Rfam assigns this 67-nucleotide RNA from Rhipicephalus sanguineus to the family "Selenocysteine insertion sequence 1". The match comes from Rfam's covariance-model search (37 bits). The family has 61 seed sequences and 3,793 matches in Rfam 15.1.
RNA sequence: GGCGCACCGUAUGAUGGCCUGGCCUCAAAUUCCAGAAAAAGGGCCAGGCUUGAAGAUUCCGCGUGUC
Number, nucleotide and partner (000 for none) at each position: 001g067002g066003c065004g064005c063006a000007c000008c000009g000010u000011a000012u000013g000014a000015u000016g050017g049018c048019c047020u046021g045022g044023c043024c042025u041026c000027a000028a000029a000030u037031u036032c000033c000034a000035g000036a031037a030038a000039a000040a000041g025042g024043g023044c022045c021046a020047g019048g018049c017050u016051u000052g000053a000054a000055g000056a000057u000058u000059c000060c000061g000062c000063g005064u004065g003066u002067c001

Taxonomically the source falls in Rhipicephalus (Eukaryota, Parasitiformes, Rhipicephalinae, Rhipicephalus). It is annotated as a cis-regulatory element.